[Rfam]
RNA sequence: AACUUUUUUCGCGGCGGAGCUCGACCGCCGACAGAAGUGAUCAUCAGCUACAUCGAUCAGCACAAGGCGGAAUACGGCGUCGGGACGAUCUGCCGGGUGCUCACCGAGCACGGCUGCAAGAUCGCGUCG
Numbered sequence: 001a002a003c004u005u006u007u008u009u010c011g012c013g014g015c016g017g018a019g020c021u022c023g024a025c026c027g028c029c030g031a032c033a034g035a036a037g038u039g040a041u042c043a044u045c046a047g048c049u050a051c052a053u054c055g056a057u058c059a060g061c062a063c064a065a066g067g068c069g070g071a072a073u074a075c076g077g078c079g080u081c082g083g084g085a086c087g088a089u090c091u092g093c094c095g096g097g098u099g100c101u102c103a104c105c106g107a108g109c110a111c112g113g114c115u116g117c118a119a120g121a122u123c124g125c126g127u128c129g
Stems, first nucleotide, its partner, number of pairs: 013029005075129005086124002089121003092117002095114001
Dot-bracket structure: ............(((((.......))))).............................................(((((......((.(((((.(..................).)).))).)))))))
Rfam assigns this 129-nucleotide RNA from Nakamurella panacisegetis to the family "ALIL pseudoknot". Taxonomically the source falls in Nakamurella (Bacteria, Actinomycetota, Actinomycetes, Nakamurellales). Rfam classes the family as a cis-regulatory element. The match comes from Rfam's covariance-model search (65 bits). The literature on the family includes a 2008 paper in J Biol Chem by Mazauric et al., "Apical loop-internal loop RNA pseudoknots: a new type of stimulator of -1 translational frameshifting in bacteria". The family's consensus secondary structure is taken from published work. Rfam 15.1 lists 2,146 matches to the family in 1,098 species.